This 116-nucleotide RNA sequence from Clostridium cylindrosporum belongs to the Rfam family "FMN riboswitch aptamer (RFN element)". The RFN element is a highly conserved domain that is found frequently in the 5'-untranslated regions of prokaryotic mRNAs that encode for flavin mononucleotide (FMN) biosynthesis and transport proteins. This element is a metabolite-dependent riboswitch that directly binds FMN in the absence of proteins. In Bacillus subtilis, the riboswitch most likely controls gene expression by causing premature transcription termination within the 5' untranslated region of the ribDEAHT operon and precluding access to the ribosome-binding site of ypaA mRNA.The FMN riboswitch structure, reported in present an FMN-bound six-stem junction, adopts a butterfly-like scaffold, stapled together by opposingly directed but nearly identically folded peripheral domains. The organism belongs to Clostridium cylindrosporum, within Bacteria. The base pairs follow the family's consensus structure, which is taken from published work. Its family is annotated with FMN binding in the Gene Ontology.

[Rfam]
RNA sequence: AUAAAUCUUCAGGGCAGGGUUAAAUUCCCUACCGGCGGUAAAGCCCGCGAGCCUUAAUGGCAUGAUUCGGUUAGAUUCCGAAGCCGACAGUAGAGUCUGGAUGAAAGAAGAUGGAU
Dot-bracket structure: ....((((((......(((.......))).[[((((((....[[))))....(......).....(((((.......)))))]])).(((....]]))).......))))))....